[Rfam]
This 392-nucleotide RNA from Hydrocarboniphaga daqingensis belongs to the Rfam family "Bacterial RNase P class A". By type it is a ribozyme. Ribonuclease P (RNase P) is a ubiquitous endoribonuclease, found in archaea, bacteria and eukarya as well as chloroplasts and mitochondria. The organism belongs to Hydrocarboniphaga, within Bacteria. The match comes from Rfam's covariance-model search (300 bits).
RNA sequence: UGAGUCGGCCGAACAACCGCCGCCAUGCUUGCCGUGGGGGAGGAAAGUCCGGGCUCCGCAGGACAGAACGCCAGGUAACGCCUGGGAGGCGCGAGCCUACGGCCAGUGCAACAGAAAGCAAACCGCCGAUGGCCCCGCGCAAGCAGGGAUCAGGUAAGGGUGAAACGGUGCGGUAAGAGCGCACCGCGAGUCCAGCAAUGGACCGGCACGGUAAACCCCGUUCGGAGCAAGGCCAAAUAGGGUGGGACGCAGCGAGUCAUCGCUGCAACGCGUGGUCCGCGCGCUCACCGGGUAGGCUGCUGGAGCCCUGGAGUGAUCCAGGGCCUAGAGGAAUGGUUGUUGCGGGGUCGCAAGGCCCCAGACAGAACCCGGCUUACAGGCCGACUCGUUUU
Numbered sequence: 001u002g003a004g005u006c007g008g009c010c011g012a013a014c015a016a017c018c019g020c021c022g023c024c025a026u027g028c029u030u031g032c033c034g035u036g037g038g039g040g041a042g043g044a045a046a047g048u049c050c051g052g053g054c055u056c057c058g059c060a061g062g063a064c065a066g067a068a069c070g071c072c073a074g075g076u077a078a079c080g081c082c083u084g085g086g087a088g089g090c091g092c093g094a095g096c097c098u099a100c101g102g103c104c105a106g107u108g109c110a111a112c113a114g115a116a117a118g119c120a121a122a123c124c125g126c127c128g129a130u131g132g133c134c135c136c137g138c139g140c141a142a143g144c145a146g147g148g149a150u151c152a153g154g155u156a157a158g159g160g161u162g163a164a165a166c167g168g169u170g171c172g173g174u175a176a177g178a179g180c181g182c183a184c185c186g187c188g189a190g191u192c193c194a195g196c197a198a199u200g201g202a203c204c205g206g207c208a209c210g211g212u213a214a215a216c217c218c219c220g221u222u223c224g225g226a227g228c229a230a231g232g233c234c235a236a237a238u239a240g241g242g243u244g245g246g247a248c249g250c251a252g253c254g255a256g257u258c259a260u261c262g263c264u265g266c267a268a269c270g271c272g273u274g275g276u277c278c279g280c281g282c283g284c285u286c287a288c289c290g291g292g293u294a295g296g297c298u299g300c301u302g303g304a305g306c307c308c309u310g311g312a313g314u315g316a317u318c319c320a321g322g323g324c325c326u327a328g329a330g331g332a333a334u335g336g337u338u339g340u341u342g343c344g345g346g347g348u349c350g351c352a353a354g355g356c357c358c359c360a361g362a363c364a365g366a367a368c369c370c371g372g373c374u375u376a377c378a379g380g381c382c383g384a385c386u387c388g389u390u391u392u
Base pairs, nucleotide, nucleotide: 001388002387003386004385005384006383007382008381009380010379011377012341013340014339015338016337017336018335020040021039023037024036025035026034027033045375046374047373049372050371051370052369053368054227055226056225057224061278062277063276064275066223067222068221069220070219071085072084073083074082075081086100087098088097089096090095101218102217106216107215108212109211123159124158125155126154127153130152131151132150134148135147167185168184169183170182171181172180186207187205188204190203191202192201193200194199231298232297233296234295241289242288243287244286245285246284269283270282271281272280273279305324306323307322308321309320310319311318312317